[Rfam]
RNA sequence: GGCGCGCCAUGAACGAGGCGACGUCGCCGGGCGGACAGGGCCCGGUCUCCGGGGCCGCCUGAGGUUGCCGACAACGGCGGGCAAUGAGGGCGGGUGGAUAAGCCGGGCCUAUACCACUUCAAUUCUAACCUU
Numbered sequence: 001g002g003c004g005c006g007c008c009a010u011g012a013a014c015g016a017g018g019c020g021a022c023g024u025c026g027c028c029g030g031g032c033g034g035a036c037a038g039g040g041c042c043c044g045g046u047c048u049c050c051g052g053g054g055c056c057g058c059c060u061g062a063g064g065u066u067g068c069c070g071a072c073a074a075c076g077g078c079g080g081g082c083a084a085u086g087a088g089g090g091c092g093g094g095u096g097g098a099u100a101a102g103c104c105g106g107g108c109c110u111a112u113a114c115c116a117c118u119u120c121a122a123u124u125c126u127a128a129c130c131u132u
Base pairs, nucleotide, nucleotide: 038110039109040108041107042106043105044104045103046102049097050096055093056092057091058090059089060088067078068077069076
RNA: HgcE RNA (Pab105)